[Rfam]
RNA sequence: AAUAGUUAGUGCAAAAUGCGCACGUAAAUAACCGACGUUGUAAGGCGUCGGUUAUUUUUUUGC
Numbered sequence: 001a002a003u004a005g006u007u008a009g010u011g012c013a014a015a016a017u018g019c020g021c022a023c024g025u026a027a028a029u030a031a032c033c034g035a036c037g038u039u040g041u042a043a044g045g046c047g048u049c050g051g052u053u054a055u056u057u058u059u060u061u062g063c
Stems, first nucleotide, its partner, number of pairs: 011021002029054009
Overview:
The family of this 63-nucleotide RNA from Plesiomonas shigelloides is "Enterobacterial sRNA STnc240". The organism belongs to Plesiomonas shigelloides, within Bacteria. It scores 62 bits against the family's covariance model. The family's consensus secondary structure was predicted with WAR.